Small Cajal body specific RNA 8: a 131-nucleotide RNA from Denticeps clupeoides. Pairs were carried over by alignment from the consensus structure, which is taken from published work. On this family, see Darzacq et al., EMBO J 2002: "Cajal body-specific small nuclear RNAs: a novel class of 2'-O-methylation and pseudouridylation guide RNAs". The match comes from Rfam's covariance-model search (123 bits). Rfam's curators write: scaRNAs are a specific class of small nuclear RNAs which localise to the Cajal bodies and guide the modification of RNA polymerase II transcribed spliceosomal RNAs U1, U2, U4, U5 and U12. U92 belong to the H/ACA box class of guide RNAs as it has the predicted hairpin-hinge-hairpin-tail structure, conserved H/ACA-box motifs and is found associated with GAR1.
[Rfam]
RNA sequence: CGGGAGACAGAUACCUGGGUAGUUUUGAGCAGUGUUCUACCCAUCACUAGUUCUCCCUAUAGUAUCCGUGCUCUCUGAUGACCGGGGCGAAUUGAGGGAAAUCGCAACGGACAGAUACGGAGCAGACAUUU
Numbered sequence: 001c002g003g004g005a006g007a008c009a010g011a012u013a014c015c016u017g018g019g020u021a022g023u024u025u026u027g028a029g030c031a032g033u034g035u036u037c038u039a040c041c042c043a044u045c046a047c048u049a050g051u052u053c054u055c056c057c058u059a060u061a062g063u064a065u066c067c068g069u070g071c072u073c074u075c076u077g078a079u080g081a082c083c084g085g086g087g088c089g090a091a092u093u094g095a096g097g098g099a100a101a102u103c104g105c106a107a108c109g110g111a112c113a114g115a116u117a118c119g120g121a122g123c124a125g126a127c128a129u130u131u
Stems, first nucleotide, its partner, number of pairs: 002057006016043003022037001025034001067125001069124006082110003087105004

Background
By type it is a small Cajal body RNA.